[Rfam]
Description
The family of this 95-nucleotide RNA from Phascolarctos cinereus is "Small nucleolar RNA SNORD91 family". It scores 100 bits against the family's covariance model. The source organism's lineage runs through Eukaryota, Teleostomi, Sarcopterygii, Dipnotetrapodomorpha and Phascolarctos. The literature on the family includes a 2001 paper in EMBO J by Huttenhofer et al., "RNomics: an experimental approach that identifies 201 candidates for novel, small, non-messenger RNAs in mouse". The base pairs follow the family's consensus structure.

RNA sequence: UGGAGAAGCCAGUGAUGGUUUAAGCCAGAAUGUCUGAACCUGUCUGAAGCAUCUCUGUGAUGCGUAUUCUGUGUGGCUCUGAGGCUUCUUUCUCU
Number, nucleotide and partner (000 for none) at each position: 001u000002g000003g000004a089005g088006a087007a086008g085009c084010c083011a000012g000013u000014g000015a000016u000017g000018g000019u000020u000021u000022a000023a000024g000025c000026c000027a000028g000029a000030a000031u000032g000033u000034c000035u000036g000037a000038a000039c000040c000041u000042g000043u000044c000045u000046g000047a000048a000049g000050c000051a000052u000053c000054u000055c000056u000057g000058u000059g000060a000061u000062g000063c000064g000065u000066a000067u000068u000069c000070u000071g000072u000073g000074u000075g000076g000077c000078u000079c000080u000081g000082a000083g010084g009085c008086u007087u006088c005089u004090u000091u000092c000093u000094c000095u000